mir-184 microRNA precursor family: an 81-nucleotide RNA sequence from Anopheles gambiae. A reference for the family is Chen et al. (2005), "The developmental miRNA profiles of zebrafish as determined by small RNA cloning", Genes Dev. The base pairs follow the family's consensus structure, which was predicted with PFOLD.
[Rfam]
RNA sequence: GUGCACUCGAACCCUUAUCAUUCUUUCGCCCCGUGUGCUUUCUAACAACUGGACGGAGAACUGAUAAGGGCCCGGGUCACC
Numbered sequence: 001g002u003g004c005a006c007u008c009g010a011a012c013c014c015u016u017a018u019c020a021u022u023c024u025u026u027c028g029c030c031c032c033g034u035g036u037g038c039u040u041u042c043u044a045a046c047a048a049c050u051g052g053a054c055g056g057a058g059a060a061c062u063g064a065u066a067a068g069g070g071c072c073c074g075g076g077u078c079a080c081c
Stems, first nucleotide, its partner, number of pairs: 012070009021060003025057003030052002